A member of the RNA family "Pseudomonas sRNA P11", 140 nucleotides long. From the family's description: This small RNA (sRNA) was computationally identified in the genome of the opportunistic pathogen Pseudomonas aeruginosa and its expression verified by northern blot analysis. A search with the family's covariance model found it, with a score of 96 bits. The family's consensus secondary structure was predicted with RNAalifold.

[Rfam]
RNA sequence: AUGAACGGGACUUGGCAUGCCCUCUGCAAUGAAGAAUUCGCAAAUCUACAACGGCACCGCCCUCAAUGCGGAAAACGGUGCCCUCCCGCUCGAUCGGGACCUGGACAAAGGCGUCCUCGCCAGGCAACUGGUGGGACGCC
Numbered sequence: 001a002u003g004a005a006c007g008g009g010a011c012u013u014g015g016c017a018u019g020c021c022c023u024c025u026g027c028a029a030u031g032a033a034g035a036a037u038u039c040g041c042a043a044a045u046c047u048a049c050a051a052c053g054g055c056a057c058c059g060c061c062c063u064c065a066a067u068g069c070g071g072a073a074a075a076c077g078g079u080g081c082c083c084u085c086c087c088g089c090u091c092g093a094u095c096g097g098g099a100c101c102u103g104g105a106c107a108a109a110g111g112c113g114u115c116c117u118c119g120c121c122a123g124g125c126a127a128c129u130g131g132u133g134g135g136a137c138g139c140c
Stems, first nucleotide, its partner, number of pairs: 012108003015027003054081005063072002084099005110140007118133006